[Rfam]
RNA: Small nucleolar RNA SNORA48
Organism: Cnephaeus nilssonii
RNA sequence: UAACCCUGGCAAUGGGCAAGGAGACACCUGAUUGGUGGUGUGCUCUUAUAUCAAUCAGGGGCAAAGCAGAUGUACAGUCCUUAGUUCAUCCUACUUGAUGCCUGUGUCGGUGGCCAGAGCUGUUUCAUGCCUGAGGCACAUAA
Numbered sequence: 001u002a003a004c005c006c007u008g009g010c011a012a013u014g015g016g017c018a019a020g021g022a023g024a025c026a027c028c029u030g031a032u033u034g035g036u037g038g039u040g041u042g043c044u045c046u047u048a049u050a051u052c053a054a055u056c057a058g059g060g061g062c063a064a065a066g067c068a069g070a071u072g073u074a075c076a077g078u079c080c081u082u083a084g085u086u087c088a089u090c091c092u093a094c095u096u097g098a099u100g101c102c103u104g105u106g107u108c109g110g111u112g113g114c115c116a117g118a119g120c121u122g123u124u125u126c127a128u129g130c131c132u133g134a135g136g137c138a139c140a141u142a143a
Stems, first nucleotide, its partner, number of pairs: 001063001004060005013053003019047003024041005082138001085135003097131001099129001103127002108122002111119001